[Rfam]
RNA: Eukaryotic small subunit ribosomal RNA, nucleotides 383 to 839
RNA sequence: GGGGGCCUGAAUAUUACACCUCUUCGCGAAUCAGGACUAGCUGGAAGCGGGUCGUUUUCUGAAAGGAAAGCGGCGUUGCUGAAAGCUAGGUUCUAAAACGUUGGGCCAGUCGCGCUGAAAGGCGCGGCUAGUCGUGCAUAUGCACGGCGACACUGUCAAAUUGCGGCGACACCCUGAGAGCUUCAAGUACCAAGCUAGCGUCGAAAGACAGCUAGUGGCCGAGUUAGUAACCCUGGGUACGGUAAAAACCUUGAAGAUUGGGCGAGCACGCAGCCAAGUCCUACGGCGCAAGCUACGGAUGCAGUUCACAGACUAAAUGGCAGUGGGCGAAAGCUUAAGAUAUAGUCGGGCCUCUGGCGAAAGCCAGGUCUAGAAGAGGAAACGCAAGUGGAGAGCUUCUAGGGCAGAUUCGUCUGCGGAGUAACCGGAGAAACGGCCACCACAUCCAAGGAAGGCA
Numbered sequence: 001g002g003g004g005g006c007c008u009g010a011a012u013a014u015u016a017c018a019c020c021u022c023u024u025c026g027c028g029a030a031u032c033a034g035g036a037c038u039a040g041c042u043g044g045a046a047g048c049g050g051g052u053c054g055u056u057u058u059c060u061g062a063a064a065g066g067a068a069a070g071c072g073g074c075g076u077u078g079c080u081g082a083a084a085g086c087u088a089g090g091u092u093c094u095a096a097a098a099c100g101u102u103g104g105g106c107c108a109g110u111c112g113c114g115c116u117g118a119a120a121g122g123c124g125c126g127g128c129u130a131g132u133c134g135u136g137c138a139u140a141u142g143c144a145c146g147g148c149g150a151c152a153c154u155g156u157c158a159a160a161u162u163g164c165g166g167c168g169a170c171a172c173c174c175u176g177a178g179a180g181c182u183u184c185a186a187g188u189a190c191c192a193a194g195c196u197a198g199c200g201u202c203g204a205a206a207g208a209c210a211g212c213u214a215g216u217g218g219c220c221g222a223g224u225u226a227g228u229a230a231c232c233c234u235g236g237g238u239a240c241g242g243u244a245a246a247a248a249c250c251u252u253g254a255a256g257a258u259u260g261g262g263c264g265a266g267c268a269c270g271c272a273g274c275c276a277a278g279u280c281c282u283a284c285g286g287c288g289c290a291a292g293c294u295a296c297g298g299a300u301g302c303a304g305u306u307c308a309c310a311g312a313c314u315a316a317a318u319g320g321c322a323g324u325g326g327g328c329g330a331a332a333g334c335u336u337a338a339g340a341u342a343u344a345g346u347c348g349g350g351c352c353u354c355u356g357g358c359g360a361a362a363g364c365c366a367g368g369u370c371u372a373g374a375a376g377a378g379g380a381a382a383c384g385c386a387a388g389u390g391g392a393g394a395g396c397u398u399c400u401a402g403g404g405c406a407g408a409u410u411c412g413u414c415u416g417c418g419g420a421g422u423a424a425c426c427g428g429a430g431a432a433a434c435g436g437c438c439a440c441c442a443c444a445u446c447c448a449a450g451g452a453a454g455g456c457a
Stems, first nucleotide, its partner, number of pairs: 001441002004438003443454001445452002